[Rfam]
RNA sequence: AGCUGAUGCAUCUUUGGUGGCUUCUCCUCCCAGUGCCACCGCAGCAGCUGUUCCCCUCUGGAGGUUUUAAUUACCUUCACAACUACAAGGGCCCAAGUUUUCUUGCGGCCCUCUUUU
Numbered sequence: 001a002g003c004u005g006a007u008g009c010a011u012c013u014u015u016g017g018u019g020g021c022u023u024c025u026c027c028u029c030c031c032a033g034u035g036c037c038a039c040c041g042c043a044g045c046a047g048c049u050g051u052u053c054c055c056c057u058c059u060g061g062a063g064g065u066u067u068u069a070a071u072u073a074c075c076u077u078c079a080c081a082a083c084u085a086c087a088a089g090g091g092c093c094c095a096a097g098u099u100u101u102c103u104u105g106c107g108g109c110c111c112u113c114u115u116u117u
Stems, first nucleotide, its partner, number of pairs: 001049005007043003017039004059079007088112006094105004
The family of this 117-nucleotide RNA sequence from Ensifer fredii is "Alphaproteobacterial ar15". Rfam links the family to the GO term protein binding. Clan: suhB sRNA clan. The pairing is the family consensus, mapped onto this sequence. By type it is a small RNA. Rfam's curators put it in the seed alignment.